[Rfam]
RNA sequence: AGCCGUUGCACGCCUAAUCCCGGGCAAGUCGCCCGGGAGCCGGGGACCCAUGCACCUGGGGUGAAUCCACGUUCCGUGGUAGGGCCACAUCUCCCGCCCGAACCCGUCAGCUAACCCGGUCGGCAGACGGAGAGGAUCA
Number, nucleotide and partner (000 for none) at each position: 001a000002g000003c000004c000005g000006u000007u000008g000009c000010a000011c000012g124013c123014c122015u000016a000017a000018u038019c037020c036021c035022g034023g033024g032025c031026a000027a000028g000029u000030c000031g025032c024033c023034c022035g021036g020037g019038a018039g120040c119041c118042g117043g116044g115045g000046a000047c000048c000049c058050a057051u000052g000053c000054a000055c000056c000057u050058g049059g105060g104061g103062u000063g000064a000065a000066u000067c079068c078069a077070c076071g000072u000073u000074c000075c000076g070077u069078g068079g067080u000081a000082g099083g098084g097085c096086c000087a000088c000089a000090u000091c000092u000093c000094c000095c000096g085097c084098c083099c082100g000101a000102a000103c061104c060105c059106g000107u000108c000109a000110g000111c000112u000113a000114a000115c044116c043117c042118g041119g040120u039121c000122g014123g013124c012125a000126g000127a000128c000129g000130g000131a000132g000133a000134g000135g000136a000137u000138c000139a000
The family of this 139-nucleotide RNA sequence from Nonomuraea dietziae is "c-di-AMP riboswitch aptamer (ydaO/yuaA leader)".
The match comes from Rfam's covariance-model search (93 bits).
Its family is annotated with cyclic-di-AMP binding and regulation of gene expression in the Gene Ontology.